[Rfam]
RNA sequence: UGACUCUGGAAAUCCAGAGUGGGUAAGUCCUGUCUGCCCCUUUCUAGGUGACACAUUCUUGGUUUCAAGGGUUG
Numbered sequence: 001u002g003a004c005u006c007u008g009g010a011a012a013u014c015c016a017g018a019g020u021g022g023g024u025a026a027g028u029c030c031u032g033u034c035u036g037c038c039c040c041u042u043u044c045u046a047g048g049u050g051a052c053a054c055a056u057u058c059u060u061g062g063u064u065u066c067a068a069g070g071g072u073u074g
Base pairs, nucleotide, nucleotide: 002073003072004071005070006069007068009066010065011064012063013062014061016059017058021054023052024051029048030047031046
RNA: mir-551 microRNA precursor family